Bacterial RNase P class B: a 389-nucleotide sequence from Priestia koreensis.
Rfam's curators write: Ribonuclease P (RNase P) is a ubiquitous endoribonuclease, found in archaea, bacteria and eukarya as well as chloroplasts and mitochondria. Its best characterised activity is the generation of mature 5'-ends of tRNAs by cleaving the 5'-leader elements of precursor-tRNAs. Cellular RNase Ps are ribonucleoproteins. RNA from bacterial RNase Ps retains its catalytic activity in the absence of the protein subunit, i.e. it is a ribozyme. Isolated eukaryotic and archaeal RNase P RNA has not been shown to retain its catalytic function, but is still essential for the catalytic activity of the holoenzyme. Although the archaeal and eukaryotic holoenzyme s have a much greater protein content than the bacterial ones, the RNA cores from all the three lineages are homologous -- helices corresponding to P1, P2, P3, P4, and P10/11 are common to all cellular RNase P RNAs. Yet, there is considerable sequence variation, particularly among the eukaryotic RNAs.
RNA sequence: ACGUUCGAGCAAUCGCUGUACUGCUUGACAGUGCAGAGGAAAGUCCAUGCUCGCACAGGCUGAGAUGCUUGUAGUGUUCGUGCCUAGCCAAUUCAUAAGCUAGGGUAGUCUGGUCUUUGACUGGGCUAACGGCAGGGAAAAAGCCUAAGUUCAUCUGAAUAUGGCUUGAAUACCUAUAACGUGCCACAGUGACGUAGUCUUAUCAGAAAUGAUGAGAGUGGAACGCGGUAAACCCCUCGAGCGAGAAACCCAAAUAAUGGUAGGGGCACUUUUCGGAAGGAACUAAACGGAUGAAAGGACAGAUACCAAUCUGUAGAUAGAUGAUUGCUACCGGAGUACGAGGUUGCGGACCGCUUGCAGUACAAAGGUACAAAACAUGGCUUACAGAA
Numbered sequence: 001a002c003g004u005u006c007g008a009g010c011a012a013u014c015g016c017u018g019u020a021c022u023g024c025u026u027g028a029c030a031g032u033g034c035a036g037a038g039g040a041a042a043g044u045c046c047a048u049g050c051u052c053g054c055a056c057a058g059g060c061u062g063a064g065a066u067g068c069u070u071g072u073a074g075u076g077u078u079c080g081u082g083c084c085u086a087g088c089c090a091a092u093u094c095a096u097a098a099g100c101u102a103g104g105g106u107a108g109u110c111u112g113g114u115c116u117u118u119g120a121c122u123g124g125g126c127u128a129a130c131g132g133c134a135g136g137g138a139a140a141a142a143g144c145c146u147a148a149g150u151u152c153a154u155c156u157g158a159a160u161a162u163g164g165c166u167u168g169a170a171u172a173c174c175u176a177u178a179a180c181g182u183g184c185c186a187c188a189g190u191g192a193c194g195u196a197g198u199c200u201u202a203u204c205a206g207a208a209a210u211g212a213u214g215a216g217a218g219u220g221g222a223a224c225g226c227g228g229u230a231a232a233c234c235c236c237u238c239g240a241g242c243g244a245g246a247a248a249c250c251c252a253a254a255u256a257a258u259g260g261u262a263g264g265g266g267c268a269c270u271u272u273u274c275g276g277a278a279g280g281a282a283c284u285a286a287a288c289g290g291a292u293g294a295a296a297g298g299a300c301a302g303a304u305a306c307c308a309a310u311c312u313g314u315a316g317a318u319a320g321a322u323g324a325u326u327g328c329u330a331c332c333g334g335a336g337u338a339c340g341a342g343g344u345u346g347c348g349g350a351c352c353g354c355u356u357g358c359a360g361u362a363c364a365a366a367g368g369u370a371c372a373a374a375a376c377a378u379g380g381c382u383u384a385c386a387g388a389a
Base pairs, nucleotide, nucleotide: 004389005388006387007385008329009328010327011326012325013324014323016036017035018034019033020032021031041383042382043381045380046379047378048377049376050245051244052243053242054241055072056071057070058069059068060067078240079239080238082236083104084103085102086101087100088099105130106128107127108126109125110124111123112122113121114120115119131235132234134175135174136173142166143165144164145163149160150159151158181233182232183229184228185227198217199216200215201214202213203212204211205210249265250264251263269298270297271296272295273294274293275292299314300313301312302311303310304309331368332367336363337362338361339360